[Rfam]
RNA sequence: AUCAAAUGCAUCAUUGAGUGCAGCGUUGAUGAACAACGGCACGUAACCGGUCCAUGUUCAGGCUCAUCUGGUCGGUCAUCAGAUGAUCACCCGCGCUGCACUCAAUCAUGCGUUUG
Numbered sequence: 001a002u003c004a005a006a007u008g009c010a011u012c013a014u015u016g017a018g019u020g021c022a023g024c025g026u027u028g029a030u031g032a033a034c035a036a037c038g039g040c041a042c043g044u045a046a047c048c049g050g051u052c053c054a055u056g057u058u059c060a061g062g063c064u065c066a067u068c069u070g071g072u073c074g075g076u077c078a079u080c081a082g083a084u085g086a087u088c089a090c091c092c093g094c095g096c097u098g099c100a101c102u103c104a105a106u107c108a109u110g111c112g113u114u115u116g
Stems, first nucleotide, its partner, number of pairs: 006113006013106014028091001030089003
The family of this 116-nucleotide sequence from Oryza brachyantha is "MIR397 microRNA precursor family". Pairs were carried over by alignment from the consensus structure, which was predicted with WAR. Taxonomically the source falls in Oryza (Eukaryota, Streptophyta, Embryophyta, Oryzinae). Gene Ontology terms of the family: RISC complex and miRNA-mediated post-transcriptional gene silencing.